[Rfam]
RNA sequence: AGAGGGGGAUCACAGCAGGAGCGUUAAAUGUCGUGGUCCCGAUCGAACCCAUGUACUGAUGGGUUGUGAAUCCUGCU
Numbered sequence: 001a002g003a004g005g006g007g008g009a010u011c012a013c014a015g016c017a018g019g020a021g022c023g024u025u026a027a028a029u030g031u032c033g034u035g036g037u038c039c040c041g042a043u044c045g046a047a048c049c050c051a052u053g054u055a056c057u058g059a060u061g062g063g064u065u066g067u068g069a070a071u072c073c074u075g076c077u
Stems, first nucleotide, its partner, number of pairs: 006040006014077007021034003044066001046065006
The record is a 77-nucleotide RNA sequence from Zootermopsis nevadensis, which matches "Mammalian CPEB3 ribozyme" in Rfam.
From the family's description: The mammalian CPEB3 ribozyme is a self cleaving RNA located in the second intron of the CPEB3 gene which belongs to a family of genes regulating messenger RNA polyadenylation.
A search with the family's covariance model found it, with a score of 35 bits.